[Rfam]
RNA sequence: UGCACUUGUGUUUUUGUUUAACUGUGAACAAAGACUUAUAGAAAGGUGCAAAAAAUAAAUCCUCUUUUGCAACCCAGAACUCAUUGUUUAGUAAGGGUUUUGAUACAUAUAAAAGAGAUAUU
Number, nucleotide and partner (000 for none) at each position: 001u050002g049003c048004a047005c046006u045007u040008g000009u000010g035011u034012u033013u032014u031015u030016g029017u028018u000019u000020a000021a000022c026023u000024g000025u000026g022027a000028a017029c016030a015031a014032a013033g012034a011035c010036u000037u000038a000039u000040a007041g000042a000043a000044a000045g006046g005047u004048g003049c002050a001051a000052a000053a000054a000055a000056u000057a000058a000059a119060u118061c117062c000063u115064c000065u114066u113067u112068u111069g110070c000071a000072a000073c000074c000075c102076a101077g100078a099079a098080c097081u096082c095083a000084u093085u000086g000087u000088u000089u000090a000091g000092u000093a084094a000095g082096g081097g080098u079099u078100u077101u076102g075103a000104u000105a000106c000107a000108u000109a000110u069111a068112a067113a066114a065115g063116a000117g061118a060119u059120a000121u000122u000
Shown here is a 122-nucleotide RNA from Pongo abelii, a member of the family "Small nucleolar RNA SNORA40". Rfam links the family to the GO terms RNA processing and nucleolus. Taxonomically the source falls in Pongo (Eukaryota, Opisthokonta, Simiiformes, Hominidae). Pairs were carried over by alignment from the consensus structure, which was predicted with RNAalifold. From the family's description: The snoRNA ACA 40 belongs to the H/ACA family of snoRNAs and guides the pseudouridylation of 28S rRNA subunit at position U4565. NB This family has a high threshold value to exclude a large number of closely related sequences that do not appear to have conserved H and ACA boxes, and may be pseudogenes. On this family, see Ofengand and Bakin, J Mol Biol 1997: "Mapping to nucleotide resolution of pseudouridine residues in large subunit ribosomal RNAs from representative eukaryotes, prokaryotes, archaebacteria, mitochondria and chloroplasts". The family has 28 seed sequences and 2,550 matches in Rfam 15.1.